The family of this 47-nucleotide RNA from Beta vulgaris is "Plastid-rpl16 group II-D1 intron". Plastid-rpl16 is a non-coding RNA (ncRNA) recognised in plastids. It was recognised in and intronic region of a ribosome rpl16 gene. For this family Rfam cites "Retrograde signaling in plants: A critical review focusing on the GUN pathway and beyond" (Richter et al., Plant Commun, 2023). It scores 48 bits against the family's covariance model. Rfam links the family to the GO term Group II intron splicing.
RNA sequence: AAGAGCUUCUUGCCAAUAACGACUAAGAGGGUUGGCUCAAGAACAAA
Numbered sequence: 001a002a003g004a005g006c007u008u009c010u011u012g013c014c015a016a017u018a019a020c021g022a023c024u025a026a027g028a029g030g031g032u033u034g035g036c037u038c039a040a041g042a043a044c045a046a047a
Stems, first nucleotide, its partner, number of pairs: 007041002012036006